About this RNA
Shown here is a 343-nucleotide part of an RNA from Hydrogenivirga sp. 128-5-R1-1, a member of the family "Bacterial large subunit ribosomal RNA".

RNA sequence: CGGGGUAACUCUCCUCAAGGAACUCGGCAAAUUGACCCCGUAACUUCGGGAGAAGGGGUGCCCGCAAGCCGUGCCUUACGGUGCGGAAGCGGGUCGCAGAAACCAGGUGGCGGCGACUGUUUACCAAAAACACAGCACUGCGCAAACUCGUAAGAGGAAGUAUGCGGUGUGAAACCUGCCCAGUGCCCGUAGGUUAAGGGGAUGGGUGCAAGCCCAGAACCGAAGCCCGGGUAAACGGCGGCCGUAACUAUAACGGUCCUAUGGUAGCGAAAUUCCUUGUCGGGUAAGUUCCGACCUGCAUGAAUGGUCCAACGAUCGCCACGCUGUCUCGAGGGGAGUCCCG
Numbered sequence: 001c002g003g004g005g006u007a008a009c010u011c012u013c014c015u016c017a018a019g020g021a022a023c024u025c026g027g028c029a030a031a032u033u034g035a036c037c038c039c040g041u042a043a044c045u046u047c048g049g050g051a052g053a054a055g056g057g058g059u060g061c062c063c064g065c066a067a068g069c070c071g072u073g074c075c076u077u078a079c080g081g082u083g084c085g086g087a088a089g090c091g092g093g094u095c096g097c098a099g100a101a102a103c104c105a106g107g108u109g110g111c112g113g114c115g116a117c118u119g120u121u122u123a124c125c126a127a128a129a130a131c132a133c134a135g136c137a138c139u140g141c142g143c144a145a146a147c148u149c150g151u152a153a154g155a156g157g158a159a160g161u162a163u164g165c166g167g168u169g170u171g172a173a174a175c176c177u178g179c180c181c182a183g184u185g186c187c188c189g190u191a192g193g194u195u196a197a198g199g200g201g202a203u204g205g206g207u208g209c210a211a212g213c214c215c216a217g218a219a220c221c222g223a224a225g226c227c228c229g230g231g232u233a234a235a236c237g238g239c240g241g242c243c244g245u246a247a248c249u250a251u252a253a254c255g256g257u258c259c260u261a262u263g264g265u266a267g268c269g270a271a272a273u274u275c276c277u278u279g280u281c282g283g284g285u286a287a288g289u290u291c292c293g294a295c296c297u298g299c300a301u302g303a304a305u306g307g308u309c310c311a312a313c314g315a316u317c318g319c320c321a322c323g324c325u326g327u328c329u330c331g332a333g334g335g336g337a338g339u340c341c342c343g
Stems, first nucleotide, its partner, number of pairs: 001343004009338008018329003035059005044049001060094006070085006095099001107322007114314002118132003135170008143160001147156003174308003178239003183236002185232005192227003198221002203216005240258006259263001269296001279295006